[Rfam]
RNA sequence: AAGUGCUUACAGCUCUUUUUCAAUUUGUCUAGUAGGUCUUCCAGUUUUCACAGGAAGCCCUC
Numbered sequence: 001a002a003g004u005g006c007u008u009a010c011a012g013c014u015c016u017u018u019u020u021c022a023a024u025u026u027g028u029c030u031a032g033u034a035g036g037u038c039u040u041c042c043a044g045u046u047u048u049c050a051c052a053g054g055a056a057g058c059c060c061u062c
Stems, first nucleotide, its partner, number of pairs: 035060002038057005044051002

This 62-nucleotide RNA from Molossus molossus belongs to the Rfam family "U7 small nuclear RNA". Animal histone pre-mRNAs are spliced by a different mechanism than nuclear pre-mRNAs and self-splicing introns. This processing involves the U7 snRNP, which contains only one RNA species: U7. The 5' end of U7 RNA is thought to base-pair to a conserved spacer element downstream of the cleavage site in histone pre-mRNA. This family contains a number of annotated U7 pseudogenes. Rfam 15.1 lists 10,439 matches to the family in 569 species.